[Rfam]
RNA sequence: UGACAAAGGAAUAUUGACUGUUACGUGUCACAUUCUUAUUGAAUCAUGACUGUCACAUGUCAUAUUCUAUUGUUAUCAUUGGUCAAUCAGAACAUCAGAACGUGACACGUAACAGUCAACAUUC
Numbered sequence: 001u002g003a004c005a006a007a008g009g010a011a012u013a014u015u016g017a018c019u020g021u022u023a024c025g026u027g028u029c030a031c032a033u034u035c036u037u038a039u040u041g042a043a044u045c046a047u048g049a050c051u052g053u054c055a056c057a058u059g060u061c062a063u064a065u066u067c068u069a070u071u072g073u074u075a076u077c078a079u080u081g082g083u084c085a086a087u088c089a090g091a092a093c094a095u096c097a098g099a100a101c102g103u104g105a106c107a108c109g110u111a112a113c114a115g116u117c118a119a120c121a122u123u124c
Stems, first nucleotide, its partner, number of pairs: 020113004025108002029104003033100004038095002
MIR1520 microRNA precursor family: a 124-nucleotide RNA sequence from Glycine soja. The family is grouped with related families in Rfam's "MIR1520 microRNA precursor clan". The family has 18 seed sequences and 1,934 matches in Rfam 15.1. Rfam links the family to the GO terms RISC complex and miRNA-mediated post-transcriptional gene silencing. The match comes from Rfam's covariance-model search (69 bits).